[Rfam]
This 132-nucleotide RNA from Mus musculus belongs to the Rfam family "Small nucleolar RNA SNORA17". The family's consensus secondary structure was predicted with RNAalifold. It scores 120 bits against the family's covariance model. For this family Rfam cites "Mapping to nucleotide resolution of pseudouridine residues in large subunit ribosomal RNAs from representative eukaryotes, prokaryotes, archaebacteria, mitochondria and chloroplasts" (Ofengand and Bakin, J Mol Biol, 1997). snoRNA ACA 17 belongs to the H/ACA family of snoRNAs and is predicted to guide pseudouridylation of the 28S rRNA at positions U4659 and U4598. It shares the same host gene together with ACA43. NB This family has a high threshold value to exclude a large number of closely related sequences that do not appear to have conserved H and ACA boxes, and may be pseudogenes. Lineage of the source: Eukaryota > Sarcopterygii > Glires > Muridae > Mus.
RNA sequence: CCUGCCUCUAGAAUCGUUGCAGGGGUGGCUGCUGUGCCACAUGUUGGUCAGUAGGUGGCAGAAAGGAGAGAGGCUAUGUCUAUGCUCAGUGUUCUGACCUAUGAACAUCUGAAUGAUUAGUAGCUUAACAUU
Numbered sequence: 001c002c003u004g005c006c007u008c009u010a011g012a013a014u015c016g017u018u019g020c021a022g023g024g025g026u027g028g029c030u031g032c033u034g035u036g037c038c039a040c041a042u043g044u045u046g047g048u049c050a051g052u053a054g055g056u057g058g059c060a061g062a063a064a065g066g067a068g069a070g071a072g073g074c075u076a077u078g079u080c081u082a083u084g085c086u087c088a089g090u091g092u093u094c095u096g097a098c099c100u101a102u103g104a105a106c107a108u109c110u111g112a113a114u115g116a117u118u119a120g121u122a123g124c125u126u127a128a129c130a131u132u
Stems, first nucleotide, its partner, number of pairs: 002061005007055004015047001021044001025040005068129001071126007083115002086112004090107005
Dot-bracket structure: .(((((((((....(.....(...(((((......)))))...)..)....)))).)))))......(..(((((((.....((.(((((((((........))))).)))).))....)))))))..)...